[Rfam]
RNA sequence: GAGGCUGUAUCGAUAUAUUCGAACGGUACUCUGGUAAGGUGUAAUUUAAUAAGUAUAAGCGUGAGCCUAUGGAGGUGAACUCGUUGGAUUUUGCUCUGAUCCGAAAGGACCGAGACAAAAGA
Numbered sequence: 001g002a003g004g005c006u007g008u009a010u011c012g013a014u015a016u017a018u019u020c021g022a023a024c025g026g027u028a029c030u031c032u033g034g035u036a037a038g039g040u041g042u043a044a045u046u047u048a049a050u051a052a053g054u055a056u057a058a059g060c061g062u063g064a065g066c067c068u069a070u071g072g073a074g075g076u077g078a079a080c081u082c083g084u085u086g087g088a089u090u091u092u093g094c095u096c097u098g099a100u101c102c103g104a105a106a107g108g109a110c111c112g113a114g115a116c117a118a119a120a121g122a
Base pairs, nucleotide, nucleotide: 001031002030003029004027005026006025007024008023010022011021012020013019091118092117093116094114095113096112098110100109101108102107
pan motif: a 122-nucleotide RNA from Paenibacillus polymyxa.
The organism belongs to Paenibacillus polymyxa, within Bacteria.